[Rfam]
RNA sequence: CAGAGCGGGCAGUCGGUGUCGGUCUACUACAUACGCAGGUCGACCCUUGUGCCUGUUUUUGG
Numbered sequence: 001c002a003g004a005g006c007g008g009g010c011a012g013u014c015g016g017u018g019u020c021g022g023u024c025u026a027c028u029a030c031a032u033a034c035g036c037a038g039g040u041c042g043a044c045c046c047u048u049g050u051g052c053c054u055g056u057u058u059u060u061g062g
Stems, first nucleotide, its partner, number of pairs: 003058009015046002018044008027035001
Dot-bracket structure: ..(((((((((...((.((((((((.(.......).))))))))))...)))))))))....